[Rfam]
RNA sequence: GAGAGUGACACGGGGUGCCCCACCGGGGCUGAGAUCACACCCGUCGAACCUGAUCUAGUUCGUACUAGCGAAGGGAUGUCGCGCAUGACGCGU
Dot-bracket structure: .....(((((((((.((((((...))))).......)..)))).....(((...((((......))))...)))..)))))............
RNA: TPP riboswitch aptamer (THI element)